The family of this 72-nucleotide RNA is "skipping-rope RNA". The base pairs follow the family's consensus structure, which is taken from published work. It is one of the family's seed sequences. Rfam classes the family as a small RNA.
RNA sequence: CAUUUGUGAGGAUAGAACGGGCAUCUAUCGUCCUUAGUUUGAAGAUGUAGGGUUGUCAACCUACCAUAAGUG
Numbered sequence: 001c002a003u004u005u006g007u008g009a010g011g012a013u014a015g016a017a018c019g020g021g022c023a024u025c026u027a028u029c030g031u032c033c034u035u036a037g038u039u040u041g042a043a044g045a046u047g048u049a050g051g052g053u054u055g056u057c058a059a060c061c062u063a064c065c066a067u068a069a070g071u072g
Stems, first nucleotide, its partner, number of pairs: 001072008011029005020057004031042001047064005